[Rfam]
RNA sequence: GGUGAUAAAUUGCGACGUGCAAUAGAUGCAGCGGACCCGGGGGCGGUACCCGGCGGCUCCACCACCACCACCUGGACGCCCGGAAGCGGGUAGGCCGGGGCCCGGUUGUCGCCGGGGUGAUGAUGGGGCCGAACUAGGAUCGACGUGUGUUGAAAAGCGUUGUUUUCACCCGGGCUGAGUAACCCGUUCAAGGCUCAAAACUCAUAAGUGCCAACGACAACGAAGCACUCGCUCUCGCGGCGUAA
Numbered sequence: 001g002g003u004g005a006u007a008a009a010u011u012g013c014g015a016c017g018u019g020c021a022a023u024a025g026a027u028g029c030a031g032c033g034g035a036c037c038c039g040g041g042g043g044c045g046g047u048a049c050c051c052g053g054c055g056g057c058u059c060c061a062c063c064a065c066c067a068c069c070a071c072c073u074g075g076a077c078g079c080c081c082g083g084a085a086g087c088g089g090g091u092a093g094g095c096c097g098g099g100g101c102c103c104g105g106u107u108g109u110c111g112c113c114g115g116g117g118u119g120a121u122g123a124u125g126g127g128g129c130c131g132a133a134c135u136a137g138g139a140u141c142g143a144c145g146u147g148u149g150u151u152g153a154a155a156a157g158c159g160u161u162g163u164u165u166u167c168a169c170c171c172g173g174g175c176u177g178a179g180u181a182a183c184c185c186g187u188u189c190a191a192g193g194c195u196c197a198a199a200a201c202u203c204a205u206a207a208g209u210g211c212c213a214a215c216g217a218c219a220a221c222g223a224a225g226c227a228c229u230c231g232c233u234c235u236c237g238c239g240g241c242g243u244a245a
Base pairs, nucleotide, nucleotide: 001170002169003168004167005166015160016159017158018157027149028148029147031146032145033144037053038052039051040050041049054131055130056129057128058127059126060125171186172185173184174183
The record is a 245-nucleotide sequence from Novosphingobium arvoryzae, which matches "permuted transfer-messenger RNA" in Rfam. Rfam classes the family as a non-coding RNA gene. From the family's description: Bacterial tmRNA, also known as 10Sa RNA or SsrA, is named for its dual tRNA and mRNA-like properties. Its role is to liberate the mRNA from a stalled ribosome. To accomplish this part of the tmRNA is used as a reading frame that ends in a translation stop signal. The broken mRNA is replaced in the ribosome by the tmRNA and translation of the tmRNA leads to addition of a proteolysis tag to the incomplete protein enabling recognition by a protease. Recently a number of permuted tmRNA genes have been found encoded in two parts. tmRNAs have been identified in eubacteria and some chloroplasts but are absent from archaeal and eukaryote nuclear genomes. The family's consensus secondary structure is taken from published work.